[Rfam]
RNA sequence: GGGGGGAGGCCGGAUCCUGGGCUGUGUCCCCCGUGCCCUGGGCUCUGGGGCCUGCGCUGCUGGAAUCAUGCUCCCAAUGACCGCAGCUCCCU
Numbered sequence: 001g002g003g004g005g006g007a008g009g010c011c012g013g014a015u016c017c018u019g020g021g022c023u024g025u026g027u028c029c030c031c032c033g034u035g036c037c038c039u040g041g042g043c044u045c046u047g048g049g050g051c052c053u054g055c056g057c058u059g060c061u062g063g064a065a066u067c068a069u070g071c072u073c074c075c076a077a078u079g080a081c082c083g084c085a086g087c088u089c090c091c092u
Stems, first nucleotide, its partner, number of pairs: 001092006009084002012082002017079001019074003023070004027064002030062001031059001033057004040052001042051003
Dot-bracket structure: ((((((..((.((...(.(((.((((((.((.((((...(.(((....)))).)))).)..)))..)))).)))....).))))..))))))
Shown here is a 92-nucleotide sequence from Nyctereutes procyonoides, a member of the family "mir-8799 microRNA precursor family". The base pairs follow the family's consensus structure, which was predicted with RNAalifold. Rfam links the family to the GO terms miRNA-mediated post-transcriptional gene silencing and RISC complex. The match comes from Rfam's covariance-model search (63 bits).